[Rfam]
RNA sequence: GAUAUUUCUGCUAGAAAGACUCUUAAUCGUUCUGAACACUUUCUUGAAAGUUGCGGCUGACCACCGUACAGGAAUUCUCUCGCACUAGUCGGGUUUGAAGCGCGGGUGUAUCUAGGAGGGUAAGCCUAGAGCAUAAAUUGUAACUACCGCGAAUAAGGUCAUG
Numbered sequence: 001g002a003u004a005u006u007u008c009u010g011c012u013a014g015a016a017a018g019a020c021u022c023u024u025a026a027u028c029g030u031u032c033u034g035a036a037c038a039c040u041u042u043c044u045u046g047a048a049a050g051u052u053g054c055g056g057c058u059g060a061c062c063a064c065c066g067u068a069c070a071g072g073a074a075u076u077c078u079c080u081c082g083c084a085c086u087a088g089u090c091g092g093g094u095u096u097g098a099a100g101c102g103c104g105g106g107u108g109u110a111u112c113u114a115g116g117a118g119g120g121u122a123a124g125c126c127u128a129g130a131g132c133a134u135a136a137a138u139u140g141u142a143a144c145u146a147c148c149g150c151g152a153a154u155a156a157g158g159u160c161a162u163g
Base pairs, nucleotide, nucleotide: 001077002076004075005074006073007072008071009070010069013044014043015042016041017040018039052068053067054066055065056064079093080092081091082090101151102150103149104148105147107133108132109131111130112129113128114127115126116125
RNA: Tombusvirus 5' UTR